[Rfam]
RNA sequence: GUGCCCGCGCAUGAUGAGAACUGCGUUGGUAGGGACAUCUGAGAGCGUGAUGAAUGCCAACGUAUCUGAGCGGGCCAC
Numbered sequence: 001g002u003g004c005c006c007g008c009g010c011a012u013g014a015u016g017a018g019a020a021c022u023g024c025g026u027u028g029g030u031a032g033g034g035a036c037a038u039c040u041g042a043g044a045g046c047g048u049g050a051u052g053a054a055u056g057c058c059a060a061c062g063u064a065u066c067u068g069a070g071c072g073g074g075c076c077a078c
Stems, first nucleotide, its partner, number of pairs: 001078003005074001
A member of the RNA family "Small nucleolar RNA SNORD74" from Sakesphorus luctuosus, 78 nucleotides long. Clan: SNORD74 clan. A reference for the family is Galardi et al. (2002), "Purified box C/D snoRNPs are able to reproduce site-specific 2'-O-methylation of target RNA in vitro", Mol Cell Biol. The base pairs follow the family's consensus structure, which was predicted with PFOLD. The organism belongs to Sakesphorus, within Eukaryota.